[Rfam]
RNA sequence: CGGCUGUAGCUAUACUGAAACCAAAAGACUGUGAAGUUAACUGGCCGGUUAUCGUGAUUUGUCGAUCAAUCUGCUUACCGAACUUCGCACAUUU
Numbered sequence: 001c002g003g004c005u006g007u008a009g010c011u012a013u014a015c016u017g018a019a020a021c022c023a024a025a026a027g028a029c030u031g032u033g034a035a036g037u038u039a040a041c042u043g044g045c046c047g048g049u050u051a052u053c054g055u056g057a058u059u060u061g062u063c064g065a066u067c068a069a070u071c072u073g074c075u076u077a078c079c080g081a082a083c084u085u086c087g088c089a090c091a092u093u094u
Stems, first nucleotide, its partner, number of pairs: 031088008043075003047071004051066004
Dot-bracket structure: ..............................((((((((....(((.((((((((........)))).)))).))).....))))))))......
RNA: Small nucleolar RNA snoR109